RNA sequence: GCCGGAUGUGGUAGUGCAUGCCUGUAGUCCCAGGUGCUCAGGAGGCUGAGGCAGGAGGAUUGCUUGAGUCCAGGAGUUCUGGGAUGUAGUGUGCUGUGCUGAUCAGGUGGCCCCACUAAGUUCAGCAUCAAUAUGGGGACCACCCAGGAGUGGGGGACCACCAGGUGGCCUAAGGAAGGGUGAACUGGCCCAGGUCAGAAAUGGAGCAGUUCAAAAAUCCUGUGCUGAUCAAUAGUGGGAUCAUGCCUGUGAAUAGCCACUGUACUCCAGUCUGGGCAACACAGUGAGACCCCAUCUCUU
Numbered sequence: 001g002c003c004g005g006a007u008g009u010g011g012u013a014g015u016g017c018a019u020g021c022c023u024g025u026a027g028u029c030c031c032a033g034g035u036g037c038u039c040a041g042g043a044g045g046c047u048g049a050g051g052c053a054g055g056a057g058g059a060u061u062g063c064u065u066g067a068g069u070c071c072a073g074g075a076g077u078u079c080u081g082g083g084a085u086g087u088a089g090u091g092u093g094c095u096g097u098g099c100u101g102a103u104c105a106g107g108u109g110g111c112c113c114c115a116c117u118a119a120g121u122u123c124a125g126c127a128u129c130a131a132u133a134u135g136g137g138g139a140c141c142a143c144c145c146a147g148g149a150g151u152g153g154g155g156g157a158c159c160a161c162c163a164g165g166u167g168g169c170c171u172a173a174g175g176a177a178g179g180g181u182g183a184a185c186u187g188g189c190c191c192a193g194g195u196c197a198g199a200a201a202u203g204g205a206g207c208a209g210u211u212c213a214a215a216a217a218u219c220c221u222g223u224g225c226u227g228a229u230c231a232a233u234a235g236u237g238g239g240a241u242c243a244u245g246c247c248u249g250u251g252a253a254u255a256g257c258c259a260c261u262g263u264a265c266u267c268c269a270g271u272c273u274g275g276g277c278a279a280c281a282c283a284g285u286g287a288g289a290c291c292c293c294a295u296c297u298c299u300u
Base pairs, nucleotide, nucleotide: 001046002045003044004023005022007020008019009018010017028043029042030041048298049297050296051295054292055291060287061286062285063284064283068277069276070275071274072273073272074271079270080269081268082267083266085264086263087262088261089260090259091258093257094256095255096254097253099251104249105248106247107246108245109244111239112238114237115236116235117234118233120230122228123227124226125225126224127223128222129168131166132165134163135162136161138159141156143154144153145152146151169175170174176221178219179218181216186213187212188211190209195204196203197202
Shown here is a 300-nucleotide RNA sequence from Cercocebus atys, a member of the family "Metazoan signal recognition particle RNA".
Gene Ontology terms of the family: signal recognition particle, endoplasmic reticulum targeting and SRP-dependent cotranslational protein targeting to membrane, signal sequence recognition.
Pairs were carried over by alignment from the consensus structure, which is taken from published work.
Rfam's curators write: The signal recognition particle (SRP) is a universally conserved ribonucleoprotein. It is involved in the co-translational targeting of proteins to membranes.
Rfam classes the family as a non-coding RNA gene.
Taxonomically the source falls in Cercocebus (Eukaryota, Gnathostomata, Sarcopterygii, Mammalia).
The family is grouped with related families in Rfam's "SRP clan".
A search with the family's covariance model found it, with a score of 214 bits.